Bacterial large subunit ribosomal RNA: a 229-nucleotide part of an RNA from Herpetosiphon aurantiacus.
The family's consensus secondary structure is taken from published work.
The sequence is in the family's curated seed alignment.
The literature on the family includes a 2002 paper in BMC Bioinformatics by Cannone et al., "The comparative RNA web (CRW) site: an online database of comparative sequence and structure information for ribosomal, intron, and other RNAs".
NCBI's taxonomy places the organism under Bacteria, Chloroflexia, Herpetosiphonales, Herpetosiphonaceae, Herpetosiphon aurantiacus.

[Rfam]
RNA sequence: GAGUUACCCUGUGUGGCAGGUUAAGGCAGCAACAGCCGGAGCCAGAGCGACAGCGAGUCUGAAUAGGGCGAUGGUCGCACAGGGUAGACCCGAAACCAGGUGAGCAACCCAUGGUCAGACUGAAGCGACCGUAACAGGUCGUGGAAGGUCGAACUAGUGUCCGUUACAAAGGGCUUGGAUGAACUGUGGGUAGCGGAGAAAUUCCAAUCGAACCUGGAGAUAGCUGGUU
Numbered sequence: 001g002a003g004u005u006a007c008c009c010u011g012u013g014u015g016g017c018a019g020g021u022u023a024a025g026g027c028a029g030c031a032a033c034a035g036c037c038g039g040a041g042c043c044a045g046a047g048c049g050a051c052a053g054c055g056a057g058u059c060u061g062a063a064u065a066g067g068g069c070g071a072u073g074g075u076c077g078c079a080c081a082g083g084g085u086a087g088a089c090c091c092g093a094a095a096c097c098a099g100g101u102g103a104g105c106a107a108c109c110c111a112u113g114g115u116c117a118g119a120c121u122g123a124a125g126c127g128a129c130c131g132u133a134a135c136a137g138g139u140c141g142u143g144g145a146a147g148g149u150c151g152a153a154c155u156a157g158u159g160u161c162c163g164u165u166a167c168a169a170a171g172g173g174c175u176u177g178g179a180u181g182a183a184c185u186g187u188g189g190g191u192a193g194c195g196g197a198g199a200a201a202u203u204c205c206a207a208u209c210g211a212a213c214c215u216g217g218a219g220a221u222a223g224c225u226g227g228u229u
Stems, first nucleotide, its partner, number of pairs: 005086013019043004025037003047054002057069004089227002092224001096217006105193001107191009116181001118150004125142006154178003159174004195205003